[Rfam]
RNA sequence: GCCACGUGAUGAUUGAGUAGCUGCAGUAGCUGUCCAGCCGUGAUGACCUGCUAUCUAUCACCCUUUUCUGAUGGCU
Numbered sequence: 001g002c003c004a005c006g007u008g009a010u011g012a013u014u015g016a017g018u019a020g021c022u023g024c025a026g027u028a029g030c031u032g033u034c035c036a037g038c039c040g041u042g043a044u045g046a047c048c049u050g051c052u053a054u055c056u057a058u059c060a061c062c063c064u065u066u067u068c069u070g071a072u073g074g075c076u
Base pairs, nucleotide, nucleotide: 001075002074003073004072029038030037031036
Dot-bracket structure: ((((........................(((....))).................................)))).